Shown here is an 85-nucleotide RNA from Falsibacillus pallidus, a member of the family "c-di-GMP-I riboswitch aptamer". Rfam links the family to the GO term cyclic-di-GMP binding.

RNA sequence: UACAGAAAAAGGCAAACUCUUUGAAAAAAGAGGACGCAAAGUCACAGAUCUAAGGCCUUUUUGCUAGGAUGGCUGGACUACCUGG
Numbered sequence: 001u002a003c004a005g006a007a008a009a010a011g012g013c014a015a016a017c018u019c020u021u022u023g024a025a026a027a028a029a030g031a032g033g034a035c036g037c038a039a040a041g042u043c044a045c046a047g048a049u050c051u052a053a054g055g056c057c058u059u060u061u062u063g064c065u066a067g068g069a070u071g072g073c074u075g076g077a078c079u080a081c082c083u084g085g
Base pairs, nucleotide, nucleotide: 012037013036017032018031019030020029021028022027040079041078042077043076045075046074047073048070049069050068055064056063
The source organism's lineage runs through Bacteria, Bacillati, Bacillota, Caryophanales and Falsibacillus. The match comes from Rfam's covariance-model search (77 bits).